The record is a 95-nucleotide sequence from Papaver nudicaule, which matches "Small nucleolar RNA Z157/R69/R10" in Rfam. By type it is a C/D-box small nucleolar RNA. It scores 68 bits against the family's covariance model. The family has 10 seed sequences and 836 matches in Rfam 15.1. The family's consensus secondary structure was predicted with PFOLD.
[Rfam]
RNA sequence: GAGCUUGGGGUGAUAACAGUAUUGUGGACUAGAGUUUCUGAUUAGGGCUCUUCACCCUAAUUUGACGACAAACCCUUGGCUGUCUGAGCACUCUU
Numbered sequence: 001g002a003g004c005u006u007g008g009g010g011u012g013a014u015a016a017c018a019g020u021a022u023u024g025u026g027g028a029c030u031a032g033a034g035u036u037u038c039u040g041a042u043u044a045g046g047g048c049u050c051u052u053c054a055c056c057c058u059a060a061u062u063u064g065a066c067g068a069c070a071a072a073c074c075c076u077u078g079g080c081u082g083u084c085u086g087a088g089c090a091c092u093c094u095u
Stems, first nucleotide, its partner, number of pairs: 001095003006090002035067001037065002042060006